[Rfam]
RNA sequence: GGACUGGUAAUUGCAGGUGCUAUUCCCUAUAUCAGAGGGGUCAGGUUCGCCUGACUAUGAUCGUAGAGGCAGAGUGGAAUAAGCGUUUAGGACGCGGGUUCAAUUCCCGCCGCCUCCACCACGAACACAUGGCGGUUGAGACCGGCUGGUGUGUUUCUGAUGGGGGCGACUUGGGUUCGACUGGGCGCGGUAAAGACUAGGCUGCGAUUAGGCUGAGCUACGGCCUUGAUAGUGCAAAUUCACAAAUGCCAACGACAACGUUGACAUGGGUGCGGUGCGCCUCGCGGCGUAACCAUCCGGGGCUCGGGAAAGCCUAGCAACAGAAACGGCACCU
Numbered sequence: 001g002g003a004c005u006g007g008u009a010a011u012u013g014c015a016g017g018u019g020c021u022a023u024u025c026c027c028u029a030u031a032u033c034a035g036a037g038g039g040g041u042c043a044g045g046u047u048c049g050c051c052u053g054a055c056u057a058u059g060a061u062c063g064u065a066g067a068g069g070c071a072g073a074g075u076g077g078a079a080u081a082a083g084c085g086u087u088u089a090g091g092a093c094g095c096g097g098g099u100u101c102a103a104u105u106c107c108c109g110c111c112g113c114c115u116c117c118a119c120c121a122c123g124a125a126c127a128c129a130u131g132g133c134g135g136u137u138g139a140g141a142c143c144g145g146c147u148g149g150u151g152u153g154u155u156u157c158u159g160a161u162g163g164g165g166g167c168g169a170c171u172u173g174g175g176u177u178c179g180a181c182u183g184g185g186c187g188c189g190g191u192a193a194a195g196a197c198u199a200g201g202c203u204g205c206g207a208u209u210a211g212g213c214u215g216a217g218c219u220a221c222g223g224c225c226u227u228g229a230u231a232g233u234g235c236a237a238a239u240u241c242a243c244a245a246a247u248g249c250c251a252a253c254g255a256c257a258a259c260g261u262u263g264a265c266a267u268g269g270g271u272g273c274g275g276u277g278c279g280c281c282u283c284g285c286g287g288c289g290u291a292a293c294c295a296u297c298c299g300g301g302g303c304u305c306g307g308g309a310a311a312g313c314c315u316a317g318c319a320a321c322a323g324a325a326a327c328g329g330c331a332c333c334u
Stems, first nucleotide, its partner, number of pairs: 040055005059209005069202002073198003084187003088183003094110005111168007211224001213222001300315004307330001
This 334-nucleotide sequence from Microvirga aerophila belongs to the Rfam family "Alphaproteobacteria transfer-messenger RNA". Rfam classes the family as a non-coding RNA gene. The organism belongs to Microvirga, within Bacteria. It scores 159 bits against the family's covariance model. From the family's description: Bacterial tmRNA, also known as 10Sa RNA or SsrA, is named for its dual tRNA and mRNA-like properties. Its role is to liberate the mRNA from a stalled ribosome. To accomplish this part of the tmRNA is used as a reading frame that ends in a translation stop signal. The broken mRNA is replaced in the ribosome by the tmRNA and translation of the tmRNA leads to addition of a proteolysis tag to the incomplete protein enabling recognition by a protease.